[Rfam]
RNA sequence: AUUCCCGUUGUUGGUGCUCCCCUUGGGGGCAUCGCGGCAGCCCUGGCUCAUGGGGUCAGGGCUGUGGAGGACGGGAUUAACUAUGCAACAGGGAAUCUUCCCGGUUGCUCCUU
Numbered sequence: 001a002u003u004c005c006c007g008u009u010g011u012u013g014g015u016g017c018u019c020c021c022c023u024u025g026g027g028g029g030c031a032u033c034g035c036g037g038c039a040g041c042c043c044u045g046g047c048u049c050a051u052g053g054g055g056u057c058a059g060g061g062c063u064g065u066g067g068a069g070g071a072c073g074g075g076a077u078u079a080a081c082u083a084u085g086c087a088a089c090a091g092g093g094a095a096u097c098u099u100c101c102c103g104g105u106u107g108c109u110c111c112u113u
Base pairs, nucleotide, nucleotide: 001077002076003075004074005073007072008071009070012034013033014032015031016030017029018028019026020025035067037065038064039063040062041061042060043059044058045057046056047055048054049053085108086107087106088105089104091102092101093100
RNA: J750 non-coding RNA (containing SLSL761 and SL783)
Organism: Orthohepacivirus hominis